RNA: BsrC
Organism: Bacillus sp. B-jedd
RNA sequence: UGUAACCUAAACGAUGUAAGCCCUACCUCUCUUACAUCCUUGCGGCUCCGAAGCCGCGCCAGUGUGAAUAAGUCCUUCUAUUAAAAA
Numbered sequence: 001u002g003u004a005a006c007c008u009a010a011a012c013g014a015u016g017u018a019a020g021c022c023c024u025a026c027c028u029c030u031c032u033u034a035c036a037u038c039c040u041u042g043c044g045g046c047u048c049c050g051a052a053g054c055c056g057c058g059c060c061a062g063u064g065u066g067a068a069u070a071a072g073u074c075c076u077u078c079u080a081u082u083a084a085a086a087a
Stems, first nucleotide, its partner, number of pairs: 035066002039062002041058007